RNA sequence: AGCAAUACAAAAGCGCCUGGACUAAUCCGGACGGUGGAUUAGUUGACGAGGGUGGAGGUUUAUCGAAUGUUCGGCGGAUGCCUCCCGGCUGAAGAGCACAGCCGCAAUCUCUUCUUUAAAACAUUGGGGUAACUUAAUGGACAAAGAGAAGGGAAUGCUAAAAU
Numbered sequence: 001a002g003c004a005a006u007a008c009a010a011a012a013g014c015g016c017c018u019g020g021a022c023u024a025a026u027c028c029g030g031a032c033g034g035u036g037g038a039u040u041a042g043u044u045g046a047c048g049a050g051g052g053u054g055g056a057g058g059u060u061u062a063u064c065g066a067a068u069g070u071u072c073g074g075c076g077g078a079u080g081c082c083u084c085c086c087g088g089c090u091g092a093a094g095a096g097c098a099c100a101g102c103c104g105c106a107a108u109c110u111c112u113u114c115u116u117u118a119a120a121a122c123a124u125u126g127g128g129g130u131a132a133c134u135u136a137a138u139g140g141a142c143a144a145a146g147a148g149a150a151g152g153g154a155a156u157g158c159u160a161a162a163a164u
Stems, first nucleotide, its partner, number of pairs: 020044009054085005063074004086104006108154007122139007
RNA: glmS glucosamine-6-phosphate activated ribozyme aptamer
Organism: Mesobacillus campisalis